[Rfam]
This 103-nucleotide sequence from a Cryomorphaceae bacterium belongs to the Rfam family "SAM riboswitch aptamer (S box leader)". NCBI's taxonomy places the organism under Bacteria, Bacteroidota, Flavobacteriia, Flavobacteriales, Cryomorphaceae. From the family's description: The SAM riboswitch is found upstream of a number of genes which code for proteins involved in methionine or cysteine biosynthesis in Gram-positive bacteria.
RNA sequence: UAGUUAUCGAGAAAGGUGGAGGGACUGGCCCUGAGAAACCUUAGCAACCCUUGAAAUUCAAGAAGGUGCUAAAUCCAACCCGGCAAUCGGGUGCAGAUAAUUC
Number, nucleotide and partner (000 for none) at each position: 001u000002a102003g101004u100005u099006a098007u097008c096009g000010a000011g000012a000013a042014a041015g040016g039017u038018g000019g000020a000021g031022g030023g029024a000025c000026u077027g076028g075029c023030c022031c021032u000033g000034a000035g000036a000037a000038a017039c016040c015041u014042u013043a070044g069045c068046a067047a000048c066049c065050c062051u061052u060053g059054a000055a000056a000057u000058u000059c053060a052061a051062g050063a000064a000065g049066g048067u046068g045069c044070u043071a000072a000073a000074u095075c028076c027077a026078a000079c000080c091081c090082g000083g000084c000085a000086a000087u000088c000089g000090g081091g080092u000093g000094c000095a074096g008097a007098u006099a005100a004101u003102u002103c000